[Rfam]
RNA sequence: AAGAGGAGGAACCGCUAUGAACGAAGUUCAUAUUGAAAACCGGUUCCGACGACCUGCCGCCGAACGAAUGUGAGGGGGCGUUACAACAU
Dot-bracket structure: .......((((((..((((((.....)))))).........))))))........(((.((..((....))..)).)))..........

The record is an 89-nucleotide RNA sequence, which matches "GA-cis RNA" in Rfam.